The record is a 350-nucleotide RNA sequence from Eubacterium sp. CAG:146, which matches "Bacterial RNase P class A" in Rfam. Lineage of the source: Bacteria > Bacillati > Eubacteriales > Eubacteriaceae > Eubacterium. Its family is annotated with dimeric ribonuclease P complex, ribonuclease P activity and tRNA processing in the Gene Ontology. The family's consensus secondary structure is taken from published work. By type it is a ribozyme.
RNA sequence: AGAGUCGGAUAAAUGAUCGCUUCCCUUCGUUACCGAAAGGUCUGGGAAGAGGAAAGUCCGGGCUUCACAGGGCAGGGUGCCGGAUAACGUCCGGUGGAGGUGACUCCAAAGAUAGUGCAACAGAGAUAUACCGCUGGCUUAUGCCAGUAAGGGUGGAAAGGCGGGGUAAGAGCCCACCGAUUCUCUGGUAACAGAGAAUGCCAUGUAAACCUCACCCGAAGCAAGACCGAAUGUAAAACGAUAAUCUGGCCCGGAUUGUUUUCAGGUGGGUCGCUAGAGGCUGCUGGCAACAGCAGAAGUAGACAGAUGAUCAUUCACGACAUAACCCGGCUUAUCGUCCGGCUCUUUUU
Numbered sequence: 001a002g003a004g005u006c007g008g009a010u011a012a013a014u015g016a017u018c019g020c021u022u023c024c025c026u027u028c029g030u031u032a033c034c035g036a037a038a039g040g041u042c043u044g045g046g047a048a049g050a051g052g053a054a055a056g057u058c059c060g061g062g063c064u065u066c067a068c069a070g071g072g073c074a075g076g077g078u079g080c081c082g083g084a085u086a087a088c089g090u091c092c093g094g095u096g097g098a099g100g101u102g103a104c105u106c107c108a109a110a111g112a113u114a115g116u117g118c119a120a121c122a123g124a125g126a127u128a129u130a131c132c133g134c135u136g137g138c139u140u141a142u143g144c145c146a147g148u149a150a151g152g153g154u155g156g157a158a159a160g161g162c163g164g165g166g167u168a169a170g171a172g173c174c175c176a177c178c179g180a181u182u183c184u185c186u187g188g189u190a191a192c193a194g195a196g197a198a199u200g201c202c203a204u205g206u207a208a209a210c211c212u213c214a215c216c217c218g219a220a221g222c223a224a225g226a227c228c229g230a231a232u233g234u235a236a237a238a239c240g241a242u243a244a245u246c247u248g249g250c251c252c253g254g255a256u257u258g259u260u261u262u263c264a265g266g267u268g269g270g271u272c273g274c275u276a277g278a279g280g281c282u283g284c285u286g287g288c289a290a291c292a293g294c295a296g297a298a299g300u301a302g303a304c305a306g307a308u309g310a311u312c313a314u315u316c317a318c319g320a321c322a323u324a325a326c327c328c329g330g331c332u333u334a335u336c337g338u339c340c341g342g343c344u345c346u347u348u349u350u
Stems, first nucleotide, its partner, number of pairs: 001346010011335001012315007020049006054333003058330005063221004070252004075217005080094005095109001096107004110212002115210002117206003131152002133148006160178002163175003179201001180199008225272004235262005243257005281296006